[Rfam]
RNA: small nucleolar RNA snoR117
Organism: Macleaya cordata
RNA sequence: AGCCUGUGAUGCUAGAAAUUGUCCGUACCAUCUGAGAUCUCUUCUCUAGAAGACUCAUUGAUGUAUCUUUCUACAAAUUUCUGAGGCUU
Numbered sequence: 001a002g003c004c005u006g007u008g009a010u011g012c013u014a015g016a017a018a019u020u021g022u023c024c025g026u027a028c029c030a031u032c033u034g035a036g037a038u039c040u041c042u043u044c045u046c047u048a049g050a051a052g053a054c055u056c057a058u059u060g061a062u063g064u065a066u067c068u069u070u071c072u073a074c075a076a077a078u079u080u081c082u083g084a085g086g087c088u089u
Stems, first nucleotide, its partner, number of pairs: 001088004
Dot-bracket structure: ((((................................................................................)))).